RNA: Plastid-ndhJ 3UTR RNA
Organism: Nyssa sinensis
RNA sequence: UCAUGAACUUUGUACCGCACACAUCACUUAGAUGGGUUAUAGAAAGUCAUCGACCUU
Numbered sequence: 001u002c003a004u005g006a007a008c009u010u011u012g013u014a015c016c017g018c019a020c021a022c023a024u025c026a027c028u029u030a031g032a033u034g035g036g037u038u039a040u041a042g043a044a045a046g047u048c049a050u051c052g053a054c055c056u057u
Base pairs, nucleotide, nucleotide: 019037020036022034023033024032025031